[Rfam]
RNA: Mason-Pfizer monkey virus packaging signal
RNA sequence: UGGCGCCCAACGUGGGGCUGGAUACUGGGGGCAUCUCAUGAGGGAGACGAAGGAAAAAGAAAGGAGUGCACUCAUUCAAUUUCGAGCAGUUCGGAGACACGCCACGGGAGCCUGCCGCAACUGAACCGAAGGUAAGUUGUGCCAUCCGAUCAUGGAGCAAGAAUUGAGCCAGCAUCUGAUUUAUGUCAAGCAAUUGAGAGAGGCUCUAAAGACACGAGGAGUAAAGGUUAGGACUGCGGAUUUAUUUCAUUUCUUUGAUUUUGUAAAGGACAUUUGUCCCU
Numbered sequence: 001u002g003g004c005g006c007c008c009a010a011c012g013u014g015g016g017g018c019u020g021g022a023u024a025c026u027g028g029g030g031g032c033a034u035c036u037c038a039u040g041a042g043g044g045a046g047a048c049g050a051a052g053g054a055a056a057a058a059g060a061a062a063g064g065a066g067u068g069c070a071c072u073c074a075u076u077c078a079a080u081u082u083c084g085a086g087c088a089g090u091u092c093g094g095a096g097a098c099a100c101g102c103c104a105c106g107g108g109a110g111c112c113u114g115c116c117g118c119a120a121c122u123g124a125a126c127c128g129a130a131g132g133u134a135a136g137u138u139g140u141g142c143c144a145u146c147c148g149a150u151c152a153u154g155g156a157g158c159a160a161g162a163a164u165u166g167a168g169c170c171a172g173c174a175u176c177u178g179a180u181u182u183a184u185g186u187c188a189a190g191c192a193a194u195u196g197a198g199a200g201a202g203g204c205u206c207u208a209a210a211g212a213c214a215c216g217a218g219g220a221g222u223a224a225a226g227g228u229u230a231g232g233a234c235u236g237c238g239g240a241u242u243u244a245u246u247u248c249a250u251u252u253c254u255u256u257g258a259u260u261u262u263g264u265a266a267a268g269g270a271c272a273u274u275u276g277u278c279c280c281u
Stems, first nucleotide, its partner, number of pairs: 006031003012025003036050002039047001088133001090131001091129002098123002105117003140159003145156004165208002168204003215257007225243005266281001268279004